[Rfam]
RNA sequence: GCCCCGUGGUUCCCGGACGCCGCGUGUCAGUCGGGCUGUCCGGGCUGGGAAAGGGCCGAGAGGAAGCAGGCCCAGUGAUGUAAGCGUGGGGGCUGCGCCUCCCGGCAGCCCCCACAGCCCGGUCACUGGCACAGGC
Numbered sequence: 001g002c003c004c005c006g007u008g009g010u011u012c013c014c015g016g017a018c019g020c021c022g023c024g025u026g027u028c029a030g031u032c033g034g035g036c037u038g039u040c041c042g043g044g045c046u047g048g049g050a051a052a053g054g055g056c057c058g059a060g061a062g063g064a065a066g067c068a069g070g071c072c073c074a075g076u077g078a079u080g081u082a083a084g085c086g087u088g089g090g091g092g093c094u095g096c097g098c099c100u101c102c103c104g105g106c107a108g109c110c111c112c113c114a115c116a117g118c119c120c121g122g123u124c125a126c127u128g129g130c131a132c133a134g135g136c
Stems, first nucleotide, its partner, number of pairs: 001056004007047002012044006019036003022032001073128001075126005084118002086115004091110006
Source information:
Small nucleolar RNA SNORA84: a 136-nucleotide RNA sequence from Sarcophilus harrisii. For this family Rfam cites "Experimental RNomics: identification of 140 candidates for small non-messenger RNAs in the plant Arabidopsis thaliana" (Marker et al., Curr Biol, 2002). The family's RNA type in Rfam is H/ACA-box small nucleolar RNA.